[Rfam]
RNA sequence: GGGCUGUCACAACGGCUUCCUGGCGUGGCAGCAAAACAUUCAAUGGAGCA
Numbered sequence: 001g002g003g004c005u006g007u008c009a010c011a012a013c014g015g016c017u018u019c020c021u022g023g024c025g026u027g028g029c030a031g032c033a034a035a036a037c038a039u040u041c042a043a044u045g046g047a048g049c050a
Stems, first nucleotide, its partner, number of pairs: 004031007013022002015049003019046002